[Rfam]
RNA sequence: CUACGGGGAUGAUUUCAAGCACUGAACUCUCUCUUUCUGAUGGCUUAGUGGAGAAAACGUAAAAACUCUGAGUAGC
Numbered sequence: 001c002u003a004c005g006g007g008g009a010u011g012a013u014u015u016c017a018a019g020c021a022c023u024g025a026a027c028u029c030u031c032u033c034u035u036u037c038u039g040a041u042g043g044c045u046u047a048g049u050g051g052a053g054a055a056a057a058c059g060u061a062a063a064a065a066c067u068c069u070g071a072g073u074a075g076c
Base pairs, nucleotide, nucleotide: 001075002074003073004072
RNA: Small nucleolar RNA SNORD26
Organism: Equus caballus